[Rfam]
A member of the RNA family "Potassium channel RNA editing signal" from Branchiostoma belcheri, 114 nucleotides long. The match comes from Rfam's covariance-model search (68 bits). Rfam classes the family as a cis-regulatory element. The source organism's lineage runs through Eukaryota, Opisthokonta, Metazoa, Amphioxiformes and Branchiostoma.

RNA sequence: GUGGGGUACGGCGACAACACCCCUCUCACGGUUGGCGGGAAAAUCGUCGGUGCGGUGUGCGCCGUGACGGGACUGUUAGUCAUCGCACUCCCCGUACCGGUCAUUGUGUCGAAC
Number, nucleotide and partner (000 for none) at each position: 001g114002u113003g000004g000005g110006g000007u108008a107009c106010g105011g104012c000013g102014a101015c100016a000017a000018c000019a000020c000021c094022c000023c000024u000025c000026u000027c000028a000029c000030g000031g000032u000033u000034g000035g000036c000037g077038g076039g000040a074041a000042a000043a000044u000045c000046g000047u000048c000049g063050g062051u061052g000053c000054g000055g000056u000057g000058u000059g000060c000061g051062c050063c049064g000065u000066g000067a000068c000069g000070g000071g000072a000073c000074u040075g000076u038077u037078a000079g000080u000081c000082a000083u000084c000085g000086c000087a000088c000089u000090c000091c000092c000093c000094g021095u000096a000097c000098c000099g000100g015101u014102c013103a000104u011105u010106g009107u008108g007109u000110c005111g000112a000113a002114c001
The family has 85 seed sequences and 14,095 matches in Rfam 15.1. This family represents a group of sequences related to the human potassium channel Kv1.1 hairpin element which directs the efficient modification of an adenosine to inosine by an adenosine deaminase acting on RNA (ADAR). The ADAR modification causes an isoleucine/valine recoding event which lies in the ion-conducting pore of the potassium channel. It is thought that this editing event targets the process of fast inactivation and allows a more rapid recovery from inactivation at negative potentials.